[Rfam]
RNA sequence: UAUGUGGACCGGGCCCCUCUGGCGGUGCUUGCACCGUGAUGUCGGACCACAUCG
Numbered sequence: 001u002a003u004g005u006g007g008a009c010c011g012g013g014c015c016c017c018u019c020u021g022g023c024g025g026u027g028c029u030u031g032c033a034c035c036g037u038g039a040u041g042u043c044g045g046a047c048c049a050c051a052u053c054g
Stems, first nucleotide, its partner, number of pairs: 006048002009045004022037006
The record is a 54-nucleotide RNA from Ketogulonicigenium robustum, which matches "terC RNA" in Rfam. Lineage of the source: Bacteria > Pseudomonadati > Pseudomonadota > Alphaproteobacteria > Ketogulonicigenium. Pairs were carried over by alignment from the consensus structure, which is taken from published work. The family's RNA type in Rfam is cis-regulatory element. It scores 59 bits against the family's covariance model.